Actino-pnp RNA: a 61-nucleotide RNA from Streptomyces sp. NL15-2K. By type it is a cis-regulatory element. It scores 61 bits against the family's covariance model. Lineage of the source: Bacteria > Actinomycetota > Actinomycetes > Kitasatosporales > Streptomyces.
RNA sequence: GCCGGUCCUCGGUAGUGGCCCCCGUGGGCACGAGCCCCGGGUGCUUCGAUCGAAGACCGGC
Numbered sequence: 001g002c003c004g005g006u007c008c009u010c011g012g013u014a015g016u017g018g019c020c021c022c023c024g025u026g027g028g029c030a031c032g033a034g035c036c037c038c039g040g041g042u043g044c045u046u047c048g049a050u051c052g053a054a055g056a057c058c059g060g061c
Base pairs, nucleotide, nucleotide: 001061002060003059004058005057006056007055009053010052011051012050013049017045018044019043021041022040023039024038027036028035029034
Dot-bracket structure: (((((((.(((((...(((.((((..(((....))).)))).)))...))))).)))))))